[Rfam]
RNA sequence: GCGCACGUGGUGAAAUUGGUAGACACGCCAGCUUGAGGGGCUGGUGGGAGCAAUCCCGUGGAAGUUCGAAUCUUCUCGUGCGCA
Numbered sequence: 001g002c003g004c005a006c007g008u009g010g011u012g013a014a015a016u017u018g019g020u021a022g023a024c025a026c027g028c029c030a031g032c033u034u035g036a037g038g039g040g041c042u043g044g045u046g047g048g049a050g051c052a053a054u055c056c057c058g059u060g061g062a063a064g065u066u067c068g069a070a071u072c073u074u075c076u077c078g079u080g081c082g083c084a
Base pairs, nucleotide, nucleotide: 001083002082003081004080005079006078007077010026011025012024028044029043030042031041032040060076061075062074063073064072
RNA: tRNA
Organism: Reichenbachiella faecimaris